[Rfam]
This 143-nucleotide RNA from Chara braunii belongs to the Rfam family "small nucleolar RNA snoR134". It scores 40 bits against the family's covariance model. Lineage of the source: Eukaryota > Charophyceae > Charales > Characeae > Chara. Rfam links the family to the GO terms RNA processing and nucleolus. For this family Rfam cites "Mining small RNA sequencing data: a new approach to identify small nucleolar RNAs in Arabidopsis" (Chen and Wu, Nucleic Acids Res, 2009). The family has 5 seed sequences and 792 matches in Rfam 15.1.
RNA sequence: AUGCAUGAUCCUUACCCCGGGCGCAUUGACGAUAUUCUAGAUGGUCAUUAGUGCCCUGUGGAUGUGCUAGAGCAACUGUGUCCCGUGUUGCAGCUUUUGUGGAUUGACAACAUGAAGGCUGUGUCAAAUCGGACCCGAUAUCG
Numbered sequence: 001a002u003g004c005a006u007g008a009u010c011c012u013u014a015c016c017c018c019g020g021g022c023g024c025a026u027u028g029a030c031g032a033u034a035u036u037c038u039a040g041a042u043g044g045u046c047a048u049u050a051g052u053g054c055c056c057u058g059u060g061g062a063u064g065u066g067c068u069a070g071a072g073c074a075a076c077u078g079u080g081u082c083c084c085g086u087g088u089u090g091c092a093g094c095u096u097u098u099g100u101g102g103a104u105u106g107a108c109a110a111c112a113u114g115a116a117g118g119c120u121g122u123g124u125c126a127a128a129u130c131g132g133a134c135c136c137g138a139u140a141u142c143g
Stems, first nucleotide, its partner, number of pairs: 003067005010061002020055005025049001028046003078136001080134004086126002089123006097114001